A member of the RNA family "Small Cajal body specific RNA 8" from Pipistrellus kuhlii, 128 nucleotides long. About the family: scaRNAs are a specific class of small nuclear RNAs which localise to the Cajal bodies and guide the modification of RNA polymerase II transcribed spliceosomal RNAs U1, U2, U4, U5 and U12. U92 belong to the H/ACA box class of guide RNAs as it has the predicted hairpin-hinge-hairpin-tail structure, conserved H/ACA-box motifs and is found associated with GAR1. It is annotated as a small Cajal body RNA. For this family Rfam cites "RNomics: an experimental approach that identifies 201 candidates for novel, small, non-messenger RNAs in mouse" (Huttenhofer et al., EMBO J, 2001). The source organism's lineage runs through Eukaryota, Euteleostomi, Tetrapoda, Theria and Pipistrellus.

RNA sequence: UGGGAGGCUGAUACACACAUUGAGCUGAGUAUUCCUCUAAUUGUCACUGUACCUCCCUAGAAUAAACUGCCUUUUGAUGACCCGGACGAAUUGAGUGAAAUCGUAACGGACAGACAGUUUAAAAACAA
Numbered sequence: 001u002g003g004g005a006g007g008c009u010g011a012u013a014c015a016c017a018c019a020u021u022g023a024g025c026u027g028a029g030u031a032u033u034c035c036u037c038u039a040a041u042u043g044u045c046a047c048u049g050u051a052c053c054u055c056c057c058u059a060g061a062a063u064a065a066a067c068u069g070c071c072u073u074u075u076g077a078u079g080a081c082c083c084g085g086a087c088g089a090a091u092u093g094a095g096u097g098a099a100a101u102c103g104u105a106a107c108g109g110a111c112a113g114a115c116a117g118u119u120u121a122a123a124a125a126c127a128a
Base pairs, nucleotide, nucleotide: 002057003056004055005054006053007052015044016043017042022037023036024035068121069120072117073116081109082108086104087103088102089101
Dot-bracket structure: .((((((.......(((....(((..........)))....))).......))))))..........((..((.......((...((((...........))))...))......))..)).......